[Rfam]
Rfam assigns this 117-nucleotide sequence from Trochodendron aralioides to the family "Plastid-psbA-1 3UTR RNA". The family is grouped with related families in Rfam's "Plastid-psbA 3UTR RNA clan".
RNA sequence: UUGAAGCUCCAUCUACAAAUGGAUAAGACUUCGUUCUUAGUCUAUACGAGUUGUUGAAGUUAAAGGAGCAAUAACAAAAUUCUUGUUCUAUCAAGAGGCUUGGUAUUGCUCCUUCAU
Numbered sequence: 001u002u003g004a005a006g007c008u009c010c011a012u013c014u015a016c017a018a019a020u021g022g023a024u025a026a027g028a029c030u031u032c033g034u035u036c037u038u039a040g041u042c043u044a045u046a047c048g049a050g051u052u053g054u055u056g057a058a059g060u061u062a063a064a065g066g067a068g069c070a071a072u073a074a075c076a077a078a079a080u081u082c083u084u085g086u087u088c089u090a091u092c093a094a095g096a097g098g099c100u101u102g103g104u105a106u107u108g109c110u111c112c113u114u115c116a117u
Stems, first nucleotide, its partner, number of pairs: 008023005063114011076101002080097005
Description
By type it is a cis-regulatory element. Rfam describes the family as follows. Plastid psbA-1 is a non-coding RNA (ncRNA) present in plastids. It was identified in inverted repeat sequences in the 3 prime untranslate region (3UTR) of photosystem II quinone-binding protein (psbA).